[Rfam]
RNA sequence: CGAGAAAUCGGCAAUCGACCUCAUAUAAUAUUGGGAAUAUGGCCCAAAAGUUUCUACCGGAUCACCACUGUAAUGAUCUGACUAUGAGUGAAGCAUGUAUUUGG
Numbered sequence: 001c002g003a004g005a006a007a008u009c010g011g012c013a014a015u016c017g018a019c020c021u022c023a024u025a026u027a028a029u030a031u032u033g034g035g036a037a038u039a040u041g042g043c044c045c046a047a048a049a050g051u052u053u054c055u056a057c058c059g060g061a062u063c064a065c066c067a068c069u070g071u072a073a074u075g076a077u078c079u080g081a082c083u084a085u086g087a088g089u090g091a092a093g094c095a096u097g098u099a100u101u102u103g104g
Stems, first nucleotide, its partner, number of pairs: 020088006029049001031047005058080007

The family of this 104-nucleotide sequence from Paenibacillus nuruki is "Purine riboswitch aptamer".
Riboswitches are metabolite binding domains within certain messenger RNAs that serve as precision sensors for their corresponding targets. Allosteric rearrangement of mRNA structure is mediated by ligand binding, and this results in modulation of gene expression. A class of riboswitches that selectively recognises guanine and becomes saturated at concentrations as low as 5 nM. In Bacillus subtilis, this mRNA motif is located on at least five separate transcriptional units that together encode 17 genes that are mostly involved in purine transport and purine nucleotide biosynthesis. It has also been shown that some members of this family are specific for adenine instead.
NCBI's taxonomy places the organism under Bacteria, Bacillati, Bacillota, Bacilli, Paenibacillus.